[Rfam]
RNA: Small nucleolar RNA SNORA8
Organism: Onychostoma macrolepis
RNA sequence: AGCACUGUUGGUAUCUGCAUCCAGUUGUAUGUCUGACUGGAAUGUUCAAAUGCCAGUGCUAGAGAACCUCGGCACCCGCUCUAAUUGGACCUUAUGUUUGUUGUUGGGUCCUGGUGGUGGUCGAGACAAGGCC
Numbered sequence: 001a002g003c004a005c006u007g008u009u010g011g012u013a014u015c016u017g018c019a020u021c022c023a024g025u026u027g028u029a030u031g032u033c034u035g036a037c038u039g040g041a042a043u044g045u046u047c048a049a050a051u052g053c054c055a056g057u058g059c060u061a062g063a064g065a066a067c068c069u070c071g072g073c074a075c076c077c078g079c080u081c082u083a084a085u086u087g088g089a090c091c092u093u094a095u096g097u098u099u100g101u102u103g104u105u106g107g108g109u110c111c112u113g114g115u116g117g118u119g120g121u122c123g124a125g126a127c128a129a130g131g132c133c
Stems, first nucleotide, its partner, number of pairs: 002059006014052001016050001017045004022040001023038005062122002066118003069114004082100001